[Rfam]
RNA sequence: UAUCGGUCCUCUCGCAAUGAAUAUCUGUAAACCCCGCCAGGCCCGGAAGGGAGCAACGGUAGCAGGGACUUCAUGUGCCGAGAUGUGGCUGGUAGAG
Number, nucleotide and partner (000 for none) at each position: 001u000002a000003u000004c091005g090006g089007u088008c087009c000010u083011c082012u081013c080014g079015c075016a000017a074018u073019g072020a071021a070022u000023a000024u066025c065026u064027g063028u062029a000030a000031a000032c000033c000034c059035c058036g057037c000038c000039a000040g000041g000042c051043c050044c049045g000046g000047a000048a000049g044050g043051g042052a000053g000054c000055a000056a000057c036058g035059g034060u000061a000062g028063c027064a026065g025066g024067g000068a000069c000070u021071u020072c019073a018074u017075g015076u000077g000078c000079c014080g013081a012082g011083a010084u000085g000086u000087g008088g007089c006090u005091g004092g000093u000094a000095g000096a000097g000